[Rfam]
RNA sequence: AACUUUGUGCAGUGGCAGUAUCAUAGCCCAUGAGGCUUGGCCGAGGCACGAUUAUUGCUAGUUGAACUUUCAUAUAGCAGAAAUUCUUGUCAUCCUAAAUGAAGUGUGAAAAGGGUAUUUCUGAGGAGACUAGCC
Dot-bracket structure: ...................(((.(.(((.....(((...)))..)))).)))................................((((.((((.((......)).)))).).)))....................
Numbered sequence: 001a002a003c004u005u006u007g008u009g010c011a012g013u014g015g016c017a018g019u020a021u022c023a024u025a026g027c028c029c030a031u032g033a034g035g036c037u038u039g040g041c042c043g044a045g046g047c048a049c050g051a052u053u054a055u056u057g058c059u060a061g062u063u064g065a066a067c068u069u070u071c072a073u074a075u076a077g078c079a080g081a082a083a084u085u086c087u088u089g090u091c092a093u094c095c096u097a098a099a100u101g102a103a104g105u106g107u108g109a110a111a112a113g114g115g116u117a118u119u120u121c122u123g124a125g126g127a128g129a130c131u132a133g134c135c
Stems, first nucleotide, its partner, number of pairs: 020052003024048001026047003034042003085115003088111001090109004095104002